[Rfam]
RNA sequence: AGGUACGAGAGCAGGCCAAUGGGAGGCUUGCGAGAAUAGACCGUGAUCCAGUUGCAUGUGCGGCGCGUUGCUGUGGCCCAGACAGCCAGCGCA
Numbered sequence: 001a002g003g004u005a006c007g008a009g010a011g012c013a014g015g016c017c018a019a020u021g022g023g024a025g026g027c028u029u030g031c032g033a034g035a036a037u038a039g040a041c042c043g044u045g046a047u048c049c050a051g052u053u054g055c056a057u058g059u060g061c062g063g064c065g066c067g068u069u070g071c072u073g074u075g076g077c078c079c080a081g082a083c084a085g086c087c088a089g090c091g092c093a
Base pairs, nucleotide, nucleotide: 002042003041004040006039011031012030013029014028015027016026017025065092066091067090068089070086071085072084073083
RNA: Rhodo-rpoB RNA
Organism: Profundibacter amoris